[Rfam]
RNA sequence: UUACUUACCUGGAUGUGGUCAAUGGGCGAUCAUUAUGGUCCAUGGCCUAGGGAAAUGACUUCCAUUGCACUUUGGAUAGGUUCUUGCCUAAGGUCUACCCAAGUGGUGGAGCCAACAUCAUAAUUUGUGUUAGGGGGCUUGCGUUCGCGCGGUCCCGCC
Numbered sequence: 001u002u003a004c005u006u007a008c009c010u011g012g013a014u015g016u017g018g019u020c021a022a023u024g025g026g027c028g029a030u031c032a033u034u035a036u037g038g039u040c041c042a043u044g045g046c047c048u049a050g051g052g053a054a055a056u057g058a059c060u061u062c063c064a065u066u067g068c069a070c071u072u073u074g075g076a077u078a079g080g081u082u083c084u085u086g087c088c089u090a091a092g093g094u095c096u097a098c099c100c101a102a103g104u105g106g107u108g109g110a111g112c113c114a115a116c117a118u119c120a121u122a123a124u125u126u127g128u129g130u131u132a133g134g135g136g137g138c139u140u141g142c143g144u145u146c147g148c149g150c151g152g153u154c155c156c157g158c159c
Stems, first nucleotide, its partner, number of pairs: 012119004017047005023042005049089003057081001059079002062075002092113002094110003098106002134156003140151004

Annotation:
The record is a 159-nucleotide RNA from Apium graveolens, which matches "U1 spliceosomal RNA" in Rfam. Taxonomically the source falls in Apium (Eukaryota, Streptophyta, Embryophyta, Apiales). The match comes from Rfam's covariance-model search (122 bits). From the family's description: U1 is a small nuclear RNA (snRNA) component of the spliceosome (involved in pre-mRNA splicing). Its 5' end forms complementary base pairs with the 5' splice junction, thus defining the 5' donor site of an intron. Rfam 15.1 lists 40,184 matches to the family in 1,499 species. The family's consensus secondary structure is taken from published work.